[Rfam]
RNA: Small nucleolar RNA SNORA26
Organism: Hymenochirus boettgeri
RNA sequence: UUUCUCACUUCUGAUGGUCUGUUUUGAAAGUGGCCAACAUAGGGGGGUAUACUAAAUGCUCUCAAACUCGAAGCAAAAUCUAAAUUUUUCCUUUGGAUCCUGUUGUGAGCAAUACACAU
Numbered sequence: 001u002u003u004c005u006c007a008c009u010u011c012u013g014a015u016g017g018u019c020u021g022u023u024u025u026g027a028a029a030g031u032g033g034c035c036a037a038c039a040u041a042g043g044g045g046g047g048u049a050u051a052c053u054a055a056a057u058g059c060u061c062u063c064a065a066a067c068u069c070g071a072a073g074c075a076a077a078a079u080c081u082a083a084a085u086u087u088u089u090c091c092u093u094u095g096g097a098u099c100c101u102g103u104u105g106u107g108a109g110c111a112a113u114a115c116a117c118a119u
Base pairs, nucleotide, nucleotide: 002049004047005046006045008043009042010041013038015036016035018033019030056113057111058110059109060108061107068096069095070094071093072092073091076088077087078086079084